The family of this 76-nucleotide sequence from Ameiurus melas is "mir-7563 microRNA precursor family". Gene Ontology terms of the family: miRNA-mediated post-transcriptional gene silencing and RISC complex. Lineage of the source: Eukaryota > Bilateria > Teleostei > Otophysi > Ameiurus.
RNA sequence: GCUGCGUACUUACCUACUAUAUAGUAGUCGAAAUACGUAUAUUUCAGCUACUAUAUAGUAGGUAAGUACACGGUUU
Numbered sequence: 001g002c003u004g005c006g007u008a009c010u011u012a013c014c015u016a017c018u019a020u021a022u023a024g025u026a027g028u029c030g031a032a033a034u035a036c037g038u039a040u041a042u043u044u045c046a047g048c049u050a051c052u053a054u055a056u057a058g059u060a061g062g063u064a065a066g067u068a069c070a071c072g073g074u075u076u
Base pairs, nucleotide, nucleotide: 001074002073003072004071006069007068008067009066010065011064012063013062014061015060017058018057019056020055021054022053023052024051025050026049027048030045031044033042034041035040